[Rfam]
RNA sequence: GGGAGAGCACCUUGUAAGUCGCUUUGGAUAAAAGCGUCUGCCAAAUGCCCUAAA
Numbered sequence: 001g002g003g004a005g006a007g008c009a010c011c012u013u014g015u016a017a018g019u020c021g022c023u024u025u026g027g028a029u030a031a032a033a034g035c036g037u038c039u040g041c042c043a044a045a046u047g048c049c050c051u052a053a054a
Base pairs, nucleotide, nucleotide: 013043014041015040016039020036021035022034023033024032025031
Shown here is a 54-nucleotide sequence from Muraenolepis orangiensis, a member of the family "UnaL2 LINE 3' element". It scores 59 bits against the family's covariance model. The eel long interspersed element (LINE) UnaL2 and its partner short interspersed element (SINE) share a conserved 3' tail containing a stem-loop that is critical for their retrotransposition. Presumably, the first step of retrotransposition is the recognition of their 3' tails by UnaL2-encoded reverse transcriptase. The solution structure of a 17-nucleotide RNA derived from the 3' tail of UnaL2 was determined by NMR.